[Rfam]
RNA sequence: GCCAUUGUAGGGUAGGAGGAGAGAGGUGUUACCUUCUCAGCUGUCACCUCUUCCAUCCUCUCCUCUGCAGGAGC
Numbered sequence: 001g002c003c004a005u006u007g008u009a010g011g012g013u014a015g016g017a018g019g020a021g022a023g024a025g026g027u028g029u030u031a032c033c034u035u036c037u038c039a040g041c042u043g044u045c046a047c048c049u050c051u052u053c054c055a056u057c058c059u060c061u062c063c064u065c066u067g068c069a070g071g072a073g074c
Base pairs, nucleotide, nucleotide: 001074002073005070006069007068008067009066010065011063012062014059015058016057017056018054019053021052022051023050024049025048026047027046028045030043031042033040034039
A member of the RNA family "mir-1759 microRNA precursor family" from Scytalopus superciliaris, 74 nucleotides long. The organism belongs to Scytalopus, within Eukaryota. Rfam links the family to the GO terms miRNA-mediated post-transcriptional gene silencing and RISC complex. It scores 81 bits against the family's covariance model.